[Rfam]
RNA sequence: AUAUUUGGUAGACGCUUAAUGGUGGAAUGAUUGGACCGGAUUUAGGGUUGUGUUCUCAGAUUGGCGGGCAGUUACACUGGUUGUUGUUUUUUAACGAAGGGCUAUGAGUGCGCUGGUGUCAGUGUAGAUACAUAUGUAUGCGCACAUGUGGUUUUUGUUGUUCUUCUACUUAUAGAUCGCUAAAAUCUGAGUUUGAGAAAUGCGGGACCAUCCAUGUCCGAAUAUAACUGACGCAUUUUGUAGCUAGAACACGUUUUUCCUACAAUUAUCCCGCUCCUCUUAGAAAAAUUCUGCUUUCACUCCAACUCUUCAUCAUUUUAUAAGAAUUUGUCUACCAUUACCACACCCACACACAAACAUUACGGCUAGUAGUUUAUUAGUCAAAUUUCCAUGGCCACACAUUUUGUCUUUUUCUCGUUUUCUUAUUGUGUUUUCUGUCACUGUGAAAGUGACGGAGAAAAAGGAGUUUGAAUCAGAUUUGCAAAACGGGCUGUAUCAAUAAUACUGUCAUUCCUAAUGUCUGAUUCAUCGUCAACUCUGUAAAAAGAGAACAAGAAAGGAAAAAUUGAUGGGCAAAAGUAUAUAU
Number, nucleotide and partner (000 for none) at each position: 001a000002u000003a000004u000005u000006u337007g336008g335009u334010a333011g332012a331013c330014g000015c000016u000017u000018a000019a000020u000021g000022g000023u000024g000025g000026a000027a000028u000029g000030a000031u000032u000033g000034g000035a000036c000037c000038g000039g000040a000041u000042u000043u000044a000045g000046g000047g000048u000049u000050g000051u000052g000053u000054u000055c000056u000057c000058a000059g000060a000061u000062u000063g000064g000065c000066g000067g120068g119069c118070a000071g000072u000073u000074a000075c000076a000077c000078u000079g000080g000081u000082u000083g000084u000085u000086g000087u000088u000089u000090u000091u000092u000093a000094a000095c000096g000097a000098a000099g000100g000101g000102c000103u000104a000105u000106g000107a000108g000109u000110g000111c000112g000113c000114u000115g000116g000117u000118g069119u068120c067121a000122g000123u000124g000125u000126a000127g000128a000129u000130a000131c000132a000133u000134a000135u000136g000137u000138a000139u000140g000141c000142g000143c000144a000145c000146a000147u000148g211149u210150g209151g208152u207153u000154u000155u000156u000157g203158u202159u000160g000161u199162u000163c197164u000165u196166c195167u000168a192169c191170u190171u189172a000173u000174a188175g187176a186177u185178c000179g000180c000181u000182a000183a000184a000185a177186u176187c175188u174189g171190a170191g169192u168193u000194u000195g166196a165197g163198a000199a161200a000201u000202g158203c157204g000205g000206g000207a152208c151209c150210a149211u148212c000213c000214a000215u000216g000217u000218c000219c000220g000221a000222a000223u000224a000225u000226a000227a000228c000229u000230g000231a000232c000233g000234c000235a000236u000237u000238u000239u000240g000241u000242a000243g000244c000245u000246a000247g000248a000249a000250c000251a000252c000253g000254u000255u000256u000257u000258u000259c000260c000261u000262a000263c000264a000265a000266u000267u000268a000269u000270c000271c000272c000273g000274c000275u000276c000277c000278u000279c000280u000281u000282a000283g000284a000285a000286a000287a000288a000289u000290u000291c000292u000293g000294c000295u000296u000297u000298c000299a000300c000301u000302c000303c000304a000305a000306c000307u000308c000309u000310u000311c000312a000313u000314c000315a000316u000317u000318u000319u000320a000321u000322a000323a000324g000325a000326a000327u000328u000329u000330g013331u012332c011333u010334a009335c008336c007337a006338u000339u000340a000341c000342c000343a000344c000345a000346c000347c000348c000349a000350c000351a000352c000353a000354c000355a000356a000357a000358c000359a000360u000361u000362a000363c000364g000365g381366c380367u379368a378369g377370u376371a000372g000373u000374u000375u000376a370377u369378u368379a367380g366381u365382c000383a000384a000385a000386u000387u000388u000389c000390c000391a000392u000393g000394g000395c000396c000397a000398c000399a000400c000401a000402u000403u000404u000405u000406g000407u000408c000409u000410u000411u000412u000413u000414c000415u000416c000417g000418u000419u000420u000421u000422c000423u000424u000425a000426u000427u000428g000429u000430g000431u459432u458433u457434u456435c455436u454437g453438u000439c451440a450441c449442u448443g000444u000445g000446a000447a000448a442449g441450u440451g439452a000453c437454g436455g435456a434457g433458a432459a431460a000461a000462a000463g539464g538465a537466g536467u535468u534469u000470g000471a526472a525473u524474c523475a522476g521477a520478u519479u000480u000481g000482c000483a000484a000485a000486a000487c000488g000489g509490g508491c507492u000493g000494u504495a503496u502497c000498a000499a000500u000501a000502a496503u495504a494505c000506u000507g491508u490509c489510a000511u000512u000513c000514c000515u000516a000517a000518u000519g478520u477521c476522u475523g474524a473525u472526u471527c000528a000529u000530c000531g000532u000533c000534a468535a467536c466537u465538c464539u463540g000541u000542a000543a000544a000545a000546a000547g000548a000549g000550a000551a000552c000553a000554a000555g000556a000557a000558a000559g000560g000561a000562a000563a000564a000565a000566u000567u000568g000569a000570u000571g000572g000573g000574c000575a000576a000577a000578a000579g000580u000581a000582u000583a000584u000585a000586u000